Nucleotides: 155
Stems, first nucleotide, its partner, number of pairs: 020040008049081005059068003082098005102145001104143004115130006
Number, partner (000 for none) and nucleotide at each position: 001000g002000u003000a004000u005000u006000a007000a008000u009000u010000a011000g012000a013000g014000c015000u016000c017000c018000u019000g020040g021039a022038g023037u024036c025035g026034g027033u028000a029000u030000g031000a032000u033027a034026c035025u036024g037023a038022c039021u040020u041000g042000a043000c044000g045000c046000g047000g048000g049081u050080g051079g052078g053077a054000u055000u056000u057000a058000g059068c060067g061066a062000g063000u064000a065000u066061u067060c068059g069000g070000a071000g072000g073000a074000u075000u076000a077053u078052c079051c080050c081049a082098c083097g084096g085095c086094a087000u088000a089000a090000g091000u092000a093000c094086u095085g096084u097083c098082g099000a100000u101000a102145u103000a104143a105142c106141u107140g108000g109000c110000a111000a112000a113000u114000a115130c116129c117128a118127g119126a120125g121000g122000u123000g124000a125120c126119u127118u128117u129116g130115g131000g132000g133000a134000c135000a136000a137000a138000u139000u140107c141106a142105g143104u144000g145102a146000a147000g148000u149000a150000c151000u152000a153000a154000u155000a

The family of this 155-nucleotide RNA from Oceanirhabdus seepicola is "glmS glucosamine-6-phosphate activated ribozyme aptamer". Taxonomically the source falls in Oceanirhabdus (Bacteria, Bacillota, Eubacteriales, Clostridiaceae). Rfam classes the family as a riboswitch.